[Rfam]
RNA sequence: UGCUCUGGGUUCCUUCAUCCCUAAUAAAUCUUUCUUUUACUAAAGAUUUCGUGGAGAGGACCAAGUAAAGAGUCUCAAAGAAUUUUUGCACAGCCUGUUUCAGCAGGCUC
Numbered sequence: 001u002g003c004u005c006u007g008g009g010u011u012c013c014u015u016c017a018u019c020c021c022u023a024a025u026a027a028a029u030c031u032u033u034c035u036u037u038u039a040c041u042a043a044a045g046a047u048u049u050c051g052u053g054g055a056g057a058g059g060a061c062c063a064a065g066u067a068a069a070g071a072g073u074c075u076c077a078a079a080g081a082a083u084u085u086u087u088g089c090a091c092a093g094c095c096u097g098u099u100u101c102a103g104c105a106g107g108c109u110c
Stems, first nucleotide, its partner, number of pairs: 003072004008062005013056005026049008092109006
A member of the RNA family "U5 spliceosomal RNA" from Polypterus senegalus, 110 nucleotides long. A search with the family's covariance model found it, with a score of 62 bits. About the family: U5 RNA is a component of both types of known spliceosome. The precise function of this molecule is unknown, though it is known that the 5' loop is required for splice site selection and p220 binding, and that both the 3' stem-loop and the Sm site are important for Sm protein binding and cap methylation. Its family is annotated with spliceosomal tri-snRNP complex assembly and U5 snRNP in the Gene Ontology.